[Rfam]
RNA: c-di-GMP-I riboswitch aptamer
Organism: Bacillus sp. FJAT-18017
RNA sequence: AAUCGAUAAAGGCAAACGUAGUGAAAAUUACGGGCGCAAAGUCACAGGUCUAAGGUGUUACACUAUGAUGGCUGGACUGCCGUU
Numbered sequence: 001a002a003u004c005g006a007u008a009a010a011g012g013c014a015a016a017c018g019u020a021g022u023g024a025a026a027a028u029u030a031c032g033g034g035c036g037c038a039a040a041g042u043c044a045c046a047g048g049u050c051u052a053a054g055g056u057g058u059u060a061c062a063c064u065a066u067g068a069u070g071g072c073u074g075g076a077c078u079g080c081c082g083u084u
Stems, first nucleotide, its partner, number of pairs: 012037002017032006040078004045074003048069003055063003